Bacilli-1 RNA: a 65-nucleotide RNA. Rfam classes the family as a small RNA. Pairs were carried over by alignment from the consensus structure, which is taken from published work.
RNA sequence: AUCUAUAGUGAUAUAGAGGUGUAAUAGAAGCACGUUACACUGCUUGGCAGAGCUUAAGAACUGUU
Numbered sequence: 001a002u003c004u005a006u007a008g009u010g011a012u013a014u015a016g017a018g019g020u021g022u023a024a025u026a027g028a029a030g031c032a033c034g035u036u037a038c039a040c041u042g043c044u045u046g047g048c049a050g051a052g053c054u055u056a057a058g059a060a061c062u063g064u065u
Stems, first nucleotide, its partner, number of pairs: 002017006018041007